[Rfam]
mir-9229 microRNA precursor family: a 76-nucleotide RNA from Myotis davidii. The match comes from Rfam's covariance-model search (79 bits). Rfam 15.1 lists 27,225 matches to the family in 9 species. The source organism's lineage runs through Eukaryota, Tetrapoda, Laurasiatheria, Chiroptera and Myotis.
Nucleotides: 076
Stems, first nucleotide, its partner, number of pairs: 001075001003073005009067004015061002018058002021056003029053003033049004037044002
Number, partner (000 for none) and nucleotide at each position: 001075g002000a003073g004072a005071c006070a007069c008000c009067c010066u011065u012064a013000u014000g015061g016060g017000u018058c019057a020000g021056g022055g023054c024000u025000u026000g027000c028000u029053u030052c031051a032000a033049u034048g035047g036046g037044g038043c039000u040000u041000u042000g043038g044037u045000g046036c047035u048034c049033a050000c051031u052030g053029a054023g055022u056021c057019u058018g059000c060016c061015c062000a063000u064012u065011g066010a067009g068000u069007g070006u071005g072004u073003c074000a075001c076000u